[Rfam]
RNA: Bacterial large subunit ribosomal RNA, nucleotides 868 to 1304
Organism: Granulicella sp. WH15
RNA sequence: CUCUCCGAAAUAGCUUUAGGGCUAGCGUCGUAUGAUUUGGAUCGGUGGUAGAGACAUGGAUGGACUAGGGGGCUUUCCGGCUUACUGAAUCCAACCAAACUUCGAAUGCCGAUCACAACCAGUACGGCAGUCAGACUGUGGGGGCUAAGCUUCACAGUCGAGAGGAAAACAGUCCAGACCGCCAGCUAAGGUCCCAAAAUUACAGUUAAGUGGGAAAGGAAGUCGGAACCCUCAGACAGCCAGGAGGUUGGCUUAGAAGCAGCCAUCCUUUAAAGAAAGCGUAAUAGCUCACUGGUCAAGGGGUCCGGUGCCGACAAUACAACGGGGCUAAAACUGUAUACCGAAGCUGCGGAUGUCAGAAAUGACGUGGUAGGAGAGCAUUCUCUCGUGGAUGAAGCGUAACUGGGAAGAUACGUGGACAUUAGAGAAGAGACCCU
Numbered sequence: 001c002u003c004u005c006c007g008a009a010a011u012a013g014c015u016u017u018a019g020g021g022c023u024a025g026c027g028u029c030g031u032a033u034g035a036u037u038u039g040g041a042u043c044g045g046u047g048g049u050a051g052a053g054a055c056a057u058g059g060a061u062g063g064a065c066u067a068g069g070g071g072g073c074u075u076u077c078c079g080g081c082u083u084a085c086u087g088a089a090u091c092c093a094a095c096c097a098a099a100c101u102u103c104g105a106a107u108g109c110c111g112a113u114c115a116c117a118a119c120c121a122g123u124a125c126g127g128c129a130g131u132c133a134g135a136c137u138g139u140g141g142g143g144g145c146u147a148a149g150c151u152u153c154a155c156a157g158u159c160g161a162g163a164g165g166a167a168a169a170c171a172g173u174c175c176a177g178a179c180c181g182c183c184a185g186c187u188a189a190g191g192u193c194c195c196a197a198a199a200u201u202a203c204a205g206u207u208a209a210g211u212g213g214g215a216a217a218g219g220a221a222g223u224c225g226g227a228a229c230c231c232u233c234a235g236a237c238a239g240c241c242a243g244g245a246g247g248u249u250g251g252c253u254u255a256g257a258a259g260c261a262g263c264c265a266u267c268c269u270u271u272a273a274a275g276a277a278a279g280c281g282u283a284a285u286a287g288c289u290c291a292c293u294g295g296u297c298a299a300g301g302g303g304u305c306c307g308g309u310g311c312c313g314a315c316a317a318u319a320c321a322a323c324g325g326g327g328c329u330a331a332a333a334c335u336g337u338a339u340a341c342c343g344a345a346g347c348u349g350c351g352g353a354u355g356u357c358a359g360a361a362a363u364g365a366c367g368u369g370g371u372a373g374g375a376g377a378g379c380a381u382u383c384u385c386u387c388g389u390g391g392a393u394g395a396a397g398c399g400u401a402a403c404u405g406g407g408a409a410g411a412u413a414c415g416u417g418g419a420c421a422u423u424a425g426a427g428a429a430g431a432g433a434c435c436c437u
Stems, first nucleotide, its partner, number of pairs: 001378006011024005026130001027128007036121001037118003040114007051103001052101002057097003061093004068086002070083005134159010164175003179352004184348003190342003199339001201338006218312002222309006229302003239296005245269003250264003270274001275290001279288002353368006379432001381429006388422003397416005403410002